[Rfam]
RNA sequence: GCCAUUCACGCAGGAGAGCGCAGCUAGCCGAUAGGCCGGUUGCCGCCGAAGGCGCAAGUGCACCCGCAAUCGCUCAGGCAAAAGGACUGCAAGAAUCCG
Number, nucleotide and partner (000 for none) at each position: 001g000002c000003c000004a000005u000006u094007c093008a000009c000010g090011c089012a088013g087014g000015a000016g000017a000018g000019c000020g043021c042022a041023g040024c039025u038026a000027g000028c000029c000030g000031a000032u000033a000034g000035g000036c000037c000038g025039g024040u023041u022042g021043c020044c000045g079046c078047c077048g075049a074050a000051g000052g073053c072054g071055c000056a000057a000058g067059u066060g000061c000062a000063c000064c000065c000066g059067c058068a000069a000070u000071c054072g053073c052074u049075c048076a000077g047078g046079c045080a000081a000082a000083a000084g000085g000086a000087c013088u012089g011090c010091a000092a000093g007094a006095a000096u000097c000098c000099g000
Glycine riboswitch aptamer: a 99-nucleotide RNA from Vogesella sp. LIG4. Taxonomically the source falls in Vogesella (Bacteria, Pseudomonadati, Betaproteobacteria, Neisseriales). A search with the family's covariance model found it, with a score of 58 bits.